Source information
A member of the RNA family "Small nucleolar RNA SNORA71" from Neogobius melanostomus, 125 nucleotides long. The source organism's lineage runs through Eukaryota, Opisthokonta, Bilateria, Clupeocephala and Neogobius. The match comes from Rfam's covariance-model search (86 bits). From the family's description: The members of this family belong to the H/ACA class of snoRNAs which bind a number of proteins (including dyskerin, Gar1p and Nop10p) to form snoRNP complexes. This class of snoRNAs are thought to guide the sites of modification of uridines to pseudouridines by forming direct base pairing interactions with substrate RNAs. Pairs were carried over by alignment from the consensus structure, which was predicted with PFOLD. Rfam 15.1 lists 1,805 matches to the family in 606 species. Gene Ontology terms of the family: nucleolus and RNA processing.
[Rfam]
RNA sequence: CCCUGUAUCGAAAGUGACUGUGGGGUCAUGUGUCUCCAGGUCAUUGAUAAUGCAGGAACAUGAGUCUGAGAGCCUUUCCCUGUGUGUGAGGGAUCUGUGCCUUCUCACCCUGGUGCUCUCAAACA
Numbered sequence: 001c002c003c004u005g006u007a008u009c010g011a012a013a014g015u016g017a018c019u020g021u022g023g024g025g026u027c028a029u030g031u032g033u034c035u036c037c038a039g040g041u042c043a044u045u046g047a048u049a050a051u052g053c054a055g056g057a058a059c060a061u062g063a064g065u066c067u068g069a070g071a072g073c074c075u076u077u078c079c080c081u082g083u084g085u086g087u088g089a090g091g092g093a094u095c096u097g098u099g100c101c102u103u104c105u106c107a108c109c110c111u112g113g114u115g116c117u118c119u120c121a122a123a124c125a
Base pairs, nucleotide, nucleotide: 002056003055004054005053006052007051008050013045014044015043016042017041018040019039022037023036024035025034065122067121068120069119070118071117072116073115084108085107086106088104089103090102091101092100